About this RNA
This 129-nucleotide RNA from Prodigiosinella confusarubida belongs to the Rfam family "RtT RNA". The family's RNA type in Rfam is cis-regulatory element. The base pairs follow the family's consensus structure, which is taken from published work. Its family is annotated with cellular response to amino acid starvation in the Gene Ontology. Rfam 15.1 lists 651 matches to the family in 204 species. Lineage of the source: Bacteria > Pseudomonadota > Enterobacterales > Pectobacteriaceae > Prodigiosinella.

[Rfam]
RNA sequence: GUUCCCAUGUGAAGGGGAAGGUGAAGAACCUUCGCCAAGGUUCGACAAAACCGUAGGUUUUGAACAAUGCCUAUGCAUUGGCCCGCAGGGCAAGGAGCGCAGCGACGCGUAAUCCUUCCCCCACCACCA
Numbered sequence: 001g002u003u004c005c006c007a008u009g010u011g012a013a014g015g016g017g018a019a020g021g022u023g024a025a026g027a028a029c030c031u032u033c034g035c036c037a038a039g040g041u042u043c044g045a046c047a048a049a050a051c052c053g054u055a056g057g058u059u060u061u062g063a064a065c066a067a068u069g070c071c072u073a074u075g076c077a078u079u080g081g082c083c084c085g086c087a088g089g090g091c092a093a094g095g096a097g098c099g100c101a102g103c104g105a106c107g108c109g110u111a112a113u114c115c116u117u118c119c120c121c122c123a124c125c126a127c128c129a
Stems, first nucleotide, its partner, number of pairs: 015120007022112001034091003041087001043085002048058001065080006